pemK RNA: a 64-nucleotide sequence.
RNA sequence: AUAAUGAUACUUCCGUAAUUCGCGGUCGGGCCAUAAUGAAGGCGCGAGGGUGGGACUCCCAUGA
Numbered sequence: 001a002u003a004a005u006g007a008u009a010c011u012u013c014c015g016u017a018a019u020u021c022g023c024g025g026u027c028g029g030g031c032c033a034u035a036a037u038g039a040a041g042g043c044g045c046g047a048g049g050g051u052g053g054g055a056c057u058c059c060c061a062u063g064a
Stems, first nucleotide, its partner, number of pairs: 012061001013025004026047003030043003048060003

Rfam's curators put it in the seed alignment. Pairs were carried over by alignment from the consensus structure, which is taken from published work.